Shown here is a 108-nucleotide sequence from Sulfuriferula plumbiphila, a member of the family "Guanidine-I riboswitch aptamer". NCBI's taxonomy places the organism under Bacteria, Betaproteobacteria, Nitrosomonadales, Sulfuricellaceae, Sulfuriferula. About the family: This family represents a conserved RNA structure found upstream of the ykkC and yxkD genes in Bacillus subtilis and related genes in other bacteria. The function of this family is unclear although it has been suggested that it may function to switch on efflux pumps and detoxification systems in response to harmful environmental molecules.

RNA sequence: UUUCAGGGCAACUAGGGUUCCGGUUCCACAAUUGUGGGAUGUCUGGUCCGAGAGUUGUCCGGCCUCAGCAUGAUAGAGGCUCCACGGAGGGAUAAAAGCCCGGGAGGU
Numbered sequence: 001u002u003u004c005a006g007g008g009c010a011a012c013u014a015g016g017g018u019u020c021c022g023g024u025u026c027c028a029c030a031a032u033u034g035u036g037g038g039a040u041g042u043c044u045g046g047u048c049c050g051a052g053a054g055u056u057g058u059c060c061g062g063c064c065u066c067a068g069c070a071u072g073a074u075a076g077a078g079g080c081u082c083c084a085c086g087g088a089g090g091g092a093u094a095a096a097a098g099c100c101c102g103g104g105a106g107g108u
Stems, first nucleotide, its partner, number of pairs: 007059006015049002020046002022043001023040006061081006068074001083103001085106001089101003